Notes:
L31-Coriobacteria ribosomal protein leader: a 32-nucleotide RNA from Olsenella profusa. The organism belongs to Olsenella profusa, within Bacteria. It is one of the family's seed sequences. The family's consensus secondary structure is taken from published work.

RNA sequence: CGCCUGGUCGGAAACCAGGCCCAAUGAAGGAG
Numbered sequence: 001c002g003c004c005u006g007g008u009c010g011g012a013a014a015c016c017a018g019g020c021c022c023a024a025u026g027a028a029g030g031a032g
Stems, first nucleotide, its partner, number of pairs: 002020007